[Rfam]
This 75-nucleotide RNA from Asparagus officinalis belongs to the Rfam family "Plastid-ycf2 5UTR RNA". By type it is a cis-regulatory element. It scores 75 bits against the family's covariance model.
RNA sequence: GUGCAUCCAGCAGGAACUGAACCUACGAAAUUGUCAAUUAUGAGGUGGGCACUUUAUCCAUUCAGCCAUGGAUGU
Numbered sequence: 001g002u003g004c005a006u007c008c009a010g011c012a013g014g015a016a017c018u019g020a021a022c023c024u025a026c027g028a029a030a031u032u033g034u035c036a037a038u039u040a041u042g043a044g045g046u047g048g049g050c051a052c053u054u055u056a057u058c059c060a061u062u063c064a065g066c067c068a069u070g071g072a073u074g075u
Stems, first nucleotide, its partner, number of pairs: 003075006010026001012024003040069003044066001046064004
Lineage of the source: Eukaryota > Streptophyta > Liliopsida > Asparagoideae > Asparagus. The family's consensus secondary structure was predicted with LocARNA. Rfam's curators write: Plastid ycf2 is a non-coding RNA (ncRNA) recognised in plastids. It was found in the prime untranslated region (5UTR) of ycf2 genes, it presents a tRNA-like motif which suggests it can be involved in mRNA maturation, particularly involved in defining the precise 5' end of the transcript.